Rfam assigns this 75-nucleotide sequence from Xenopus tropicalis to the family "mir-192/215 microRNA precursor family". Its family is annotated with RISC complex and miRNA-mediated post-transcriptional gene silencing in the Gene Ontology. A reference for the family is Lagos-Quintana et al. (2003), "New microRNAs from mouse and human", RNA. Pairs were carried over by alignment from the consensus structure, which was predicted with PFOLD. Rfam describes the family as follows. This family represents the human microRNA (miRNA) precursors mir-192 and mir-215. Animal miRNAs are transcribed as ~70nt precursors and subsequently processed by the Dicer enzyme to give a ~22nt product. In this case the mature sequence comes from the 5' arm of the precursor. The extents of the hairpin precursors are not generally known and are estimated based on hairpin prediction. The family has 48 seed sequences and 810 matches in Rfam 15.1.
[Rfam]
Nucleotides: 075
Base pairs, nucleotide, nucleotide: 001075002074003073004072005071006070007069008068010066011065013063014062015061016060018057019056020055021054022053023052024051025050026049027048029046030045031044
Number, partner (000 for none) and nucleotide at each position: 001075a002074c003073g004072g005071g006070c007069c008068u009000a010066u011065g012000a013063c014062c015061u016060a017000u018057g019056a020055a021054u022053u023052g024051a025050c026049a027048g028000c029046c030045a031044g032000u033000g034000g035000a036000u037000g038000u039000g040000a041000a042000g043000u044031c045030u046029g047000c048027c049026u050025g051024u052023c053022a054021a055020u056019u057018c058000u059000g060016u061015a062014g063013g064000c065011c066010a067000c068008a069007g070006g071005u072004u073003c074002g075001u